[Rfam]
RNA sequence: CUCUCAUCCAGAGAGGUGGAGGGAAACGGCCCUGUGAAGCCCGGCAACCCACUUUGCAACGUUGCAAGUAGGGUGCCAAUUCCGGCAAGAUACGUGAUAUGUGUGCUUGCAAGAUGAGGG
Number, nucleotide and partner (000 for none) at each position: 001c120002u119003c118004u117005c116006a115007u114008c113009c000010a000011g000012a000013g042014a000015g041016g040017u039018g000019g000020a000021g032022g031023g030024a000025a000026a000027c084028g083029g082030c023031c022032c021033u000034g000035u000036g000037a000038a000039g017040c016041c015042c013043g077044g076045c075046a074047a000048c073049c072050c000051a069052c068053u067054u066055u000056g000057c000058a000059a000060c000061g000062u000063u000064g000065c000066a054067a053068g052069u051070a000071g000072g049073g048074u046075g045076c044077c043078a000079a000080u000081u112082c029083c028084g027085g000086c109087a108088a107089g106090a000091u000092a000093c000094g000095u000096g000097a000098u000099a000100u000101g000102u000103g000104u000105g000106c089107u088108u087109g086110c000111a000112a081113g008114a007115u006116g005117a004118g003119g002120g001
About this RNA: SAM riboswitch aptamer (S box leader): a 120-nucleotide RNA sequence from Ktedonobacteria bacterium brp13. It scores 76 bits against the family's covariance model.